Molybdenum/Tungsten riboswitch aptamer (Moco RNA motif): a 134-nucleotide RNA sequence from Pantoea sp. Eser. Lineage of the source: Bacteria > Pseudomonadati > Pseudomonadota > Gammaproteobacteria > Pantoea. Rfam links the family to the GO terms tungstate binding, regulation of gene expression and molybdenum ion binding.

RNA sequence: CGGGUCAGCGUACACUCUAGCCUGAUUGCCUACGUCUGCGGAUAGGGGAGUCAGGCUGUAGCCAUUGAGCUACCAGGGUGCAGGAAGAAAUGACUGCAUCUCCCAAUCUGGAAAGGUGUUCUGGUGUCGCAAUU
Numbered sequence: 001c002g003g004g005u006c007a008g009c010g011u012a013c014a015c016u017c018u019a020g021c022c023u024g025a026u027u028g029c030c031u032a033c034g035u036c037u038g039c040g041g042a043u044a045g046g047g048g049a050g051u052c053a054g055g056c057u058g059u060a061g062c063c064a065u066u067g068a069g070c071u072a073c074c075a076g077g078g079u080g081c082a083g084g085a086a087g088a089a090a091u092g093a094c095u096g097c098a099u100c101u102c103c104c105a106a107u108c109u110g111g112a113a114a115g116g117u118g119u120u121c122u123g124g125u126g127u128c129g130c131a132a133u134u
Stems, first nucleotide, its partner, number of pairs: 003128002012119004017115001020056008029047002034043003058073005076101008086091001102111002